[Rfam]
RNA sequence: CAGUGCUUAGAGCUCUUUUUGAACUUGUCUAGUAGGUCUUCUGGUUUUUACCAGAAGACCCUU
Numbered sequence: 001c002a003g004u005g006c007u008u009a010g011a012g013c014u015c016u017u018u019u020u021g022a023a024c025u026u027g028u029c030u031a032g033u034a035g036g037u038c039u040u041c042u043g044g045u046u047u048u049u050a051c052c053a054g055a056a057g058a059c060c061c062u063u
Stems, first nucleotide, its partner, number of pairs: 035060011
A member of the RNA family "U7 small nuclear RNA" from Molossus molossus, 63 nucleotides long.
The family's consensus secondary structure was predicted with PFOLD.
Animal histone pre-mRNAs are spliced by a different mechanism than nuclear pre-mRNAs and self-splicing introns. This processing involves the U7 snRNP, which contains only one RNA species: U7. The 5' end of U7 RNA is thought to base-pair to a conserved spacer element downstream of the cleavage site in histone pre-mRNA. This family contains a number of annotated U7 pseudogenes.
The organism belongs to Molossus, within Eukaryota.